[Rfam]
RNA sequence: CCUCUUUCUUUUUCGAUAGAGUUUCCUUAUAUUAAGGUGGCUGGCUUGCCAGCUAUGGUAAUAAAUGGACAAUGAAAUAAACCUAUUGGACCCGGGGGCGGUACCCGGCGCCUCCACCAUAAAUCAAAAAUAAUGUUUGCUUUAUGAUGGGGGCGAAAUAGGAUCGACAAGGGCGUAAAGAUUGAUCUUUUACUCGGUAUUGUACCACCGUUAUCGGGCUAACUUAGUAGUUGCAAAUGACAACUAUGCGGAAGCUCGUCUCGCUGCUUAAUUGCGGCGCGUACGCUUCAAAUUGAGUCUUAAGCCGUCGCAGGUUUAAGCGGGGUUCGGAGGCACCUGGCAACAGAAGCCUUCACU
Number, nucleotide and partner (000 for none) at each position: 001c000002c000003u000004c000005u000006u000007u000008c000009u000010u000011u000012u000013u000014c000015g000016a000017u000018a000019g000020a000021g000022u000023u000024u000025c000026c000027u000028u000029a000030u000031a000032u000033u000034a000035a000036g000037g000038u000039g000040g053041c052042u051043g050044g049045c000046u000047u000048g000049c044050c043051a042052g041053c040054u000055a000056u000057g194058g193059u192060a191061a190062u000063a000064a000065a000066u000067g187068g186069a000070c184071a183072a182073u181074g000075a000076a000077a000078u000079a000080a000081a000082c173083c172084u171085a000086u170087u169088g168089g000090a000091c000092c108093c107094g106095g105096g104097g000098g000099c000100g000101g000102u000103a000104c096105c095106c094107g093108g092109c155110g154111c153112c152113u151114c150115c149116a000117c000118c000119a000120u000121a000122a000123a000124u000125c000126a000127a000128a000129a000130a000131u000132a000133a000134u000135g000136u000137u000138u000139g000140c000141u000142u000143u000144a000145u000146g000147a000148u000149g115150g114151g113152g112153g111154c110155g109156a000157a000158a000159u000160a000161g000162g000163a000164u000165c000166g000167a000168c088169a087170a086171g084172g083173g082174c000175g000176u000177a000178a000179a000180g000181a073182u072183u071184g070185a000186u068187c067188u000189u000190u061191u060192a059193c058194u057195c210196g209197g208198u207199a000200u221201u000202g219203u000204a000205c217206c216207a198208c197209c196210g195211u000212u000213a000214u000215c000216g206217g205218g000219c202220u000221a200222a000223c000224u000225u000226a000227g000228u000229a000230g000231u000232u000233g000234c000235a000236a000237a000238u000239g000240a000241c000242a000243a000244c000245u000246a000247u000248g000249c000250g000251g000252a000253a000254g000255c000256u000257c000258g000259u000260c000261u000262c000263g000264c000265u000266g000267c000268u000269u000270a000271a000272u000273u000274g000275c000276g000277g000278c000279g000280c000281g000282u000283a000284c000285g000286c000287u000288u000289c000290a000291a000292a000293u000294u000295g000296a000297g000298u000299c000300u000301u000302a000303a000304g000305c000306c000307g000308u000309c000310g000311c000312a000313g000314g000315u000316u000317u000318a000319a000320g000321c000322g000323g338324g337325g336326u335327u000328c000329g354330g353331a352332g351333g350334c349335a326336c325337c324338u323339g000340g000341c000342a000343a000344c000345a000346g000347a000348a000349g334350c333351c332352u331353u330354c329355a000356c000357u000